U1 spliceosomal RNA: a 161-nucleotide sequence from Mizuhopecten yessoensis. The match comes from Rfam's covariance-model search (98 bits). The family is grouped with related families in Rfam's "U1 clan". On this family, see Zwieb, Nucleic Acids Res 1997: "The uRNA database". The organism belongs to Mizuhopecten, within Eukaryota.
[Rfam]
Nucleotides: 161
Base pairs, nucleotide, nucleotide: 012118013117014116016050017049018048019047020046026045027044028043029042030041052093053092054091055090057089059086061084063082064081065080066079067078095114096113097112098110099107100106135160136159137158138157139156140155143152144151145150
Number, partner (000 for none) and nucleotide at each position: 001000a002000u003000a004000c005000u006000u007000a008000c009000c010000u011000u012118u013117g014116c015000c016050g017049g018048g019047a020046g021000g022000u023000u024000a025000a026045a027044c028043c029042g030041u031000g032000g033000u034000a035000a036000a037000a038000a039000g040000g041030g042029c043028g044027g045026u046020u047019u048018c049017c050016c051000c052093a053092g054091g055090g056000u057089g058000a059086g060000a061084u062000c063082u064081g065080u066079c067078c068000a069000u070000u071000g072000c073000a074000c075000u076000a077000c078067g079066g080065a081064c082063a083000g084061a085000c086059u087000g088000a089057c090055c091054u092053c093052u094000g095114c096113g097112a098110u099107c100106c101000c102000u103000a104000g105000u106100g107099g108000u109000g110098a111000c112097u113096c114095g115000g116014g117013c118012a119000c120000g121000u122000a123000a124000u125000u126000u127000a128000u129000g130000a131000g132000u133000u134000a135160g136159g137158g138157g139156a140155u141000c142000u143152g144151c145150g146000u147000u148000c149000g150145c151144g152143c153000u154000c155140a156139u157138c158137c159136c160135c161000g